[Rfam]
RNA sequence: GUCCGUUCAACCUUCUUUGAAGGUCGCAUGAAACCACAGCAUGGAACGGGGUUGUGGU
Numbered sequence: 001g002u003c004c005g006u007u008c009a010a011c012c013u014u015c016u017u018u019g020a021a022g023g024u025c026g027c028a029u030g031a032a033a034c035c036a037c038a039g040c041a042u043g044g045a046a047c048g049g050g051g052u053u054g055u056g057g058u
Stems, first nucleotide, its partner, number of pairs: 004048005010024005033058008
RNA: Glutamine-II riboswitch aptamer